The record is a 125-nucleotide RNA from Cuscuta australis, which matches "small nucleolar RNA snoR127" in Rfam. It is annotated as a C/D-box small nucleolar RNA. Taxonomically the source falls in Cuscuta sect. Cleistogrammica (Eukaryota, Viridiplantae, Streptophyta, Mesangiospermae). It scores 82 bits against the family's covariance model. Rfam 15.1 lists 273 matches to the family in 170 species. For this family Rfam cites "Mining small RNA sequencing data: a new approach to identify small nucleolar RNAs in Arabidopsis" (Chen and Wu, Nucleic Acids Res, 2009).

RNA sequence: CUGGGAUGAUGCAGUUUAGCCAAAGCAGACAAUGAUGUGCUCCUAAAGGUAUUGUGGUUUCAUUACCUUUAGUUGAAGUGCAUCGCUGUGAAGAUAAAAUUGAGAAUGGUUUCUUUCUGACCAGA
Dot-bracket structure: ((((....................................................................................................................)))).
Numbered sequence: 001c002u003g004g005g006a007u008g009a010u011g012c013a014g015u016u017u018a019g020c021c022a023a024a025g026c027a028g029a030c031a032a033u034g035a036u037g038u039g040c041u042c043c044u045a046a047a048g049g050u051a052u053u054g055u056g057g058u059u060u061c062a063u064u065a066c067c068u069u070u071a072g073u074u075g076a077a078g079u080g081c082a083u084c085g086c087u088g089u090g091a092a093g094a095u096a097a098a099a100u101u102g103a104g105a106a107u108g109g110u111u112u113c114u115u116u117c118u119g120a121c122c123a124g125a
Stems, first nucleotide, its partner, number of pairs: 001124004